[Rfam]
RNA sequence: CCCGGGGUUGCGCUGCGCCCACCCCGGGCUUUCACAUUCCGCACCUUUGGUGCU
Numbered sequence: 001c002c003c004g005g006g007g008u009u010g011c012g013c014u015g016c017g018c019c020c021a022c023c024c025c026g027g028g029c030u031u032u033c034a035c036a037u038u039c040c041g042c043a044c045c046u047u048u049g050g051u052g053c054u
Base pairs, nucleotide, nucleotide: 001028002027003026004025005024006023007022008021041053042052043051044050045049